[Rfam]
RNA sequence: UCCUCCCAGGCUGUGGUUGCGGGUGCGCGCGGGCCAUCGGUUCGCCGCGCUCCUCAGUCCAAGACAGACGCGGUCGAAGGGAUCCACGUAAGCCGUCGCGUGCGCGCGAGGGCGAUCAUGGCGCGUCCUAGAAGUAAGUCGCACCGCCCGUCGCUACUUUUUUGAGGCAAUACGUGCCUCGCGGGCGAGCGGGUUAGUCGUGAUACCGCCGCGGCGGUACGAGCAAACGCCCCGGUGCGCAAGUGUGGGGUCAAAAACCAGGUCAGCUGGGGGGA
Numbered sequence: 001u002c003c004u005c006c007c008a009g010g011c012u013g014u015g016g017u018u019g020c021g022g023g024u025g026c027g028c029g030c031g032g033g034c035c036a037u038c039g040g041u042u043c044g045c046c047g048c049g050c051u052c053c054u055c056a057g058u059c060c061a062a063g064a065c066a067g068a069c070g071c072g073g074u075c076g077a078a079g080g081g082a083u084c085c086a087c088g089u090a091a092g093c094c095g096u097c098g099c100g101u102g103c104g105c106g107c108g109a110g111g112g113c114g115a116u117c118a119u120g121g122c123g124c125g126u127c128c129u130a131g132a133a134g135u136a137a138g139u140c141g142c143a144c145c146g147c148c149c150g151u152c153g154c155u156a157c158u159u160u161u162u163u164g165a166g167g168c169a170a171u172a173c174g175u176g177c178c179u180c181g182c183g184g185g186c187g188a189g190c191g192g193g194u195u196a197g198u199c200g201u202g203a204u205a206c207c208g209c210c211g212c213g214g215c216g217g218u219a220c221g222a223g224c225a226a227a228c229g230c231c232c233c234g235g236u237g238c239g240c241a242a243g244u245g246u247g248g249g250g251u252c253a254a255a256a257a258c259c260a261g262g263u264c265a266g267c268u269g270g271g272g273g274g275a
Stems, first nucleotide, its partner, number of pairs: 001275009011266003014260005061246001063244001064074001067127006083121002088116001093111002096108001119253001140239005145187007191232004200224002206217003

Source information: A member of the RNA family "raiA RNA" from Collinsella intestinalis, 275 nucleotides long.